A member of the RNA family "Group I catalytic intron" from Acetobacter pomorum, 223 nucleotides long.
RNA sequence: GCACAGGAUUCCUAUUUAAUUGGGCACUAUAAUUGGAAACAUUAUAGUGAAUCUGCUCAAAGUCGGGGAACGCUUAAUCUGGAAAACAGAUUGUGCCAAUCCCGAGCCAAGCCUUGUACUUUAAUACAGAACAAGGAAGGUGUAGAGACUGGACGGGCAGUGCCUAAGAACCUGAAAUUUUAGGUUUAUGGCAAAGGGACAGUCCAGACCACGAACGUUGCAU
Numbered sequence: 001g002c003a004c005a006g007g008a009u010u011c012c013u014a015u016u017u018a019a020u021u022g023g024g025c026a027c028u029a030u031a032a033u034u035g036g037a038a039a040c041a042u043u044a045u046a047g048u049g050a051a052u053c054u055g056c057u058c059a060a061a062g063u064c065g066g067g068g069a070a071c072g073c074u075u076a077a078u079c080u081g082g083a084a085a086a087c088a089g090a091u092u093g094u095g096c097c098a099a100u101c102c103c104g105a106g107c108c109a110a111g112c113c114u115u116g117u118a119c120u121u122u123a124a125u126a127c128a129g130a131a132c133a134a135g136g137a138a139g140g141u142g143u144a145g146a147g148a149c150u151g152g153a154c155g156g157g158c159a160g161u162g163c164c165u166a167a168g169a170a171c172c173u174g175a176a177a178u179u180u181u182a183g184g185u186u187u188a189u190g191g192c193a194a195a196g197g198g199a200c201a202g203u204c205c206a207g208a209c210c211a212c213g214a215a216c217g218u219u220g221c222a223u
Base pairs, nucleotide, nucleotide: 005028007027010024011023012022032043034041053160054159055158056157058155063105064104065103066102067101068100072096073095075093076092077091078090079089080088081087106141107140112135114133119129120128145205147204148203149202150201151200163191164190167187168186169185171183209220211218212217